[Rfam]
RNA sequence: CUGCAGCCAAUUAAGCCAACUGUGCCCUUUCUCCAUGGGCACCCAGCUUGCCAUCACUACAAAUAGUAGCCUGCUUGCUAGUGUAUGCAGCCUGCUGAUUGUAUGGGUAGCCCUAAGGGACCUUGGAGACAGUC
Numbered sequence: 001c002u003g004c005a006g007c008c009a010a011u012u013a014a015g016c017c018a019a020c021u022g023u024g025c026c027c028u029u030u031c032u033c034c035a036u037g038g039g040c041a042c043c044c045a046g047c048u049u050g051c052c053a054u055c056a057c058u059a060c061a062a063a064u065a066g067u068a069g070c071c072u073g074c075u076u077g078c079u080a081g082u083g084u085a086u087g088c089a090g091c092c093u094g095c096u097g098a099u100u101g102u103a104u105g106g107g108u109a110g111c112c113c114u115a116a117g118g119g120a121c122c123u124u125g126g127a128g129a130c131a132g133u134c
Stems, first nucleotide, its partner, number of pairs: 003051003020046003023041004077122001079120001088110001090108004
RNA: Small nucleolar RNA SNORA70